[Rfam]
RNA sequence: AACGACAAAGGCAAACCCAUCGAAAGGUGGGGACGCAAAACCACGGGUCUUAAGCGGAAACGCCAGACAGCCGGGUCACCGAAU
Numbered sequence: 001a002a003c004g005a006c007a008a009a010g011g012c013a014a015a016c017c018c019a020u021c022g023a024a025a026g027g028u029g030g031g032g033a034c035g036c037a038a039a040a041c042c043a044c045g046g047g048u049c050u051u052a053a054g055c056g057g058a059a060a061c062g063c064c065a066g067a068c069a070g071c072c073g074g075g076u077c078a079c080c081g082a083a084u
Base pairs, nucleotide, nucleotide: 001084003081004080011036012035016031017030018029019028020027021026034070040076041075042074044073045072046071047068048067049066

This 84-nucleotide RNA from Cohnella pontilimi belongs to the Rfam family "c-di-GMP-I-GGC riboswitch aptamer". Clan: c-di-GMP_I riboswitch clan. Rfam links the family to the GO term cyclic-di-GMP binding. Lineage of the source: Bacteria > Bacillati > Caryophanales > Paenibacillaceae > Cohnella.